This 91-nucleotide RNA from Bacillus sp. SG-1 belongs to the Rfam family "c-di-GMP-I riboswitch aptamer". Rfam's curators put it in the seed alignment. Lineage of the source: Bacteria > Bacillota > Caryophanales > Bacillaceae > Bacillus.

RNA sequence: UUAACGAAAAGGCAAACUUGCUGAAAGGCAAGGACGCAAAACCACAGAUCUAAAGAUUGCUAGAGCAAUCCAAGAUGGCUGGGUUACCGAA
Number, nucleotide and partner (000 for none) at each position: 001u000002u000003a000004a000005c000006g000007a000008a000009a000010a000011g000012g037013c036014a000015a000016a000017c032018u031019u030020g029021c028022u027023g000024a000025a000026a000027g022028g021029c020030a019031a018032g017033g000034a000035c000036g013037c012038a000039a000040a085041a084042c083043c082044a000045c081046a080047g079048a076049u075050c074051u000052a000053a000054a000055g070056a069057u068058u067059g066060c065061u000062a000063g000064a000065g060066c059067a058068a057069u056070c055071c000072a000073a000074g050075a049076u048077g000078g000079c047080u046081g045082g043083g042084u041085u040086a000087c000088c000089g000090a000091a000